Shown here is a 123-nucleotide RNA sequence from Pseudaminobacter soli, a member of the family "Rhizobiales sRNA Atu_C8". A search with the family's covariance model found it, with a score of 100 bits. The base pairs follow the family's consensus structure, which was predicted with CMfinder. Lineage of the source: Bacteria > Pseudomonadati > Pseudomonadota > Phyllobacteriaceae > Pseudaminobacter. It is annotated as a small RNA.
RNA sequence: CAUGAAGACGACCCUCAUUCUCGUAGUAGGAAGGCGCAUGGGCAAGGCGGGGUGACCGCCGGGCGAAAUCCACCCAUGCGCAGAACGCAGGCUCCCACCGGGGGCCUUUUUUAUUGCCUCGAA
Numbered sequence: 001c002a003u004g005a006a007g008a009c010g011a012c013c014c015u016c017a018u019u020c021u022c023g024u025a026g027u028a029g030g031a032a033g034g035c036g037c038a039u040g041g042g043c044a045a046g047g048c049g050g051g052g053u054g055a056c057c058g059c060c061g062g063g064c065g066a067a068a069u070c071c072a073c074c075c076a077u078g079c080g081c082a083g084a085a086c087g088c089a090g091g092c093u094c095c096c097a098c099c100g101g102g103g104g105c106c107u108u109u110u111u112u113a114u115u116g117c118c119u120c121g122a123a
Stems, first nucleotide, its partner, number of pairs: 009026001029119002034081009046060005063070001087108001089107007